[Rfam]
RNA sequence: CGGGAUCUGCCCGGCGCGUUAGGAACACAUACUCUCGGGGCCUUACGGUCCUCAAGGGAGCUGUCCCUGAGGGAGACUGUGGUCUUCUUCACACGGCGCCCACCUACGUUAGUAGGUCUCCGGGGAACGAAGUUCCGACGGCCGUGGCGGACCCACU
Numbered sequence: 001c002g003g004g005a006u007c008u009g010c011c012c013g014g015c016g017c018g019u020u021a022g023g024a025a026c027a028c029a030u031a032c033u034c035u036c037g038g039g040g041c042c043u044u045a046c047g048g049u050c051c052u053c054a055a056g057g058g059a060g061c062u063g064u065c066c067c068u069g070a071g072g073g074a075g076a077c078u079g080u081g082g083u084c085u086u087c088u089u090c091a092c093a094c095g096g097c098g099c100c101c102a103c104c105u106a107c108g109u110u111a112g113u114a115g116g117u118c119u120c121c122g123g124g125g126a127a128c129g130a131a132g133u134u135c136c137g138a139c140g141g142c143c144g145u146g147g148c149g150g151a152c153c154c155a156c157u
Stems, first nucleotide, its partner, number of pairs: 003154002006151006012144004017140003032125004037120006056101003060097005069090007
Overview
Shown here is a 157-nucleotide sequence from Parvibaculum lavamentivorans, a member of the family "6S / SsrS RNA". The source organism's lineage runs through Bacteria, Pseudomonadati, Pseudomonadota, Parvibaculaceae and Parvibaculum lavamentivorans. A reference for the family is Wassarman and Storz (2000), "6S RNA regulates E. coli RNA polymerase activity", Cell. Rfam 15.1 lists 5,006 matches to the family in 4,638 species.